Rfam assigns this 170-nucleotide RNA from Zhenpiania hominis to the family "Lysine riboswitch aptamer".
[Rfam]
RNA sequence: CAGGCUGAUAGAGGAGCGAAGCGCAAGAAGAACCGGAUCGCCGGCGGGCAAUGAACCGGUUUGGGGGGCAGUUUCGCCGAACUGGAAUUUCGGGCGCGGAAUUCUGGUGGACAUAUAGUGAAGAACUAUAUGGCUGUCUGCAGAAAACCUGCAGUUGAGCUAUCCCUGAA
Numbered sequence: 001c002a003g004g005c006u007g008a009u010a011g012a013g014g015a016g017c018g019a020a021g022c023g024c025a026a027g028a029a030g031a032a033c034c035g036g037a038u039c040g041c042c043g044g045c046g047g048g049c050a051a052u053g054a055a056c057c058g059g060u061u062u063g064g065g066g067g068g069c070a071g072u073u074u075c076g077c078c079g080a081a082c083u084g085g086a087a088u089u090u091c092g093g094g095c096g097c098g099g100a101a102u103u104c105u106g107g108u109g110g111a112c113a114u115a116u117a118g119u120g121a122a123g124a125a126c127u128a129u130a131u132g133g134c135u136g137u138c139u140g141c142a143g144a145a146a147a148c149c150u151g152c153a154g155u156u157g158a159g160c161u162a163u164c165c166c167u168g169a170a
Stems, first nucleotide, its partner, number of pairs: 007164005016077007030062007081108012109135002112132008138154006
Dot-bracket structure: ......(((((....(((((((.......(((((((...................)))))))........)))))))...((((((((((((....))))))))))))((.((((((((.....)))))))).))..((((((.....)))))).....)))))......

The organism belongs to Zhenpiania, within Bacteria. Gene Ontology term of the family: lysine biosynthetic process. Riboswitches are metabolite binding domains within certain messenger RNAs that serve as precision sensors for their corresponding targets.